[Rfam]
RNA: Streptomyces sRNA 4677
RNA sequence: AAGUACGUGCUUUAAGUACUGGAGAAAUAACCCAACCCAACCCCACCCGACUCAACCCGGGGCGUCGUCACUCACACGGGUGAAGUGUGCCAACCGGGCUGGAUUUUGGCCCCGUUGGCGGGCAUAUGCUCACGCUGACCACCACCGCAGACAUUGAGACGGCCCCCGGCCGGGACUGGCAUCCCGACCGAAGGCCUGACCACCGAGGAAGUAGGAGCUUCCCG
Numbered sequence: 001a002a003g004u005a006c007g008u009g010c011u012u013u014a015a016g017u018a019c020u021g022g023a024g025a026a027a028u029a030a031c032c033c034a035a036c037c038c039a040a041c042c043c044c045a046c047c048c049g050a051c052u053c054a055a056c057c058c059g060g061g062g063c064g065u066c067g068u069c070a071c072u073c074a075c076a077c078g079g080g081u082g083a084a085g086u087g088u089g090c091c092a093a094c095c096g097g098g099c100u101g102g103a104u105u106u107u108g109g110c111c112c113c114g115u116u117g118g119c120g121g122g123c124a125u126a127u128g129c130u131c132a133c134g135c136u137g138a139c140c141a142c143c144a145c146c147g148c149a150g151a152c153a154u155u156g157a158g159a160c161g162g163c164c165c166c167c168g169g170c171c172g173g174g175a176c177u178g179g180c181a182u183c184c185c186g187a188c189c190g191a192a193g194g195c196c197u198g199a200c201c202a203c204c205g206a207g208g209a210a211g212u213a214g215g216a217g218c219u220u221c222c223c224g
Stems, first nucleotide, its partner, number of pairs: 068083006098133001100132003161196004167190003172185004207222005